[Rfam]
RNA sequence: CGAGCAACUGUAAACAUCCUCGACUGGAAGCUGGGAGACCCGGAUGGGCUUUCAGUCGGAUGUUUGCAGCUGCUUG
Numbered sequence: 001c002g003a004g005c006a007a008c009u010g011u012a013a014a015c016a017u018c019c020u021c022g023a024c025u026g027g028a029a030g031c032u033g034g035g036a037g038a039c040c041c042g043g044a045u046g047g048g049c050u051u052u053c054a055g056u057c058g059g060a061u062g063u064u065u066g067c068a069g070c071u072g073c074u075u076g
Stems, first nucleotide, its partner, number of pairs: 002075005008069012023056010

Shown here is a 76-nucleotide sequence from Octodon degus, a member of the family "mir-30 microRNA precursor family". Lineage of the source: Eukaryota > Chordata > Teleostomi > Eutheria > Octodon. Rfam 15.1 lists 3,879 matches to the family in 647 species. From the family's description: This family consists of the mammalian microRNA (miRNA) precursor mir-30a. Animal miRNAs are transcribed as ~70nt precursors and subsequently processed by the Dicer enzyme to give a ~22nt product. In this case the mature sequence comes from both the 3' (miR-30) and 5' (mir-97-6) arms of the precursor. The extents of the hairpin precursors are not generally known and are estimated based on hairpin prediction. It scores 76 bits against the family's covariance model.